[Rfam]
RNA sequence: AGAUAAAUCUGAAAUACGGAGUAAAGCUUGCCGUGAGAAGUCAGCAGAGGCCAUAGUACCGAUUUUUUUUUCGGGAAGGGC
Numbered sequence: 001a002g003a004u005a006a007a008u009c010u011g012a013a014a015u016a017c018g019g020a021g022u023a024a025a026g027c028u029u030g031c032c033g034u035g036a037g038a039a040g041u042c043a044g045c046a047g048a049g050g051c052c053a054u055a056g057u058a059c060c061g062a063u064u065u066u067u068u069u070u071u072c073g074g075g076a077a078g079g080g081c
Stems, first nucleotide, its partner, number of pairs: 001028002004024001006022001008020004041048002050081003059074004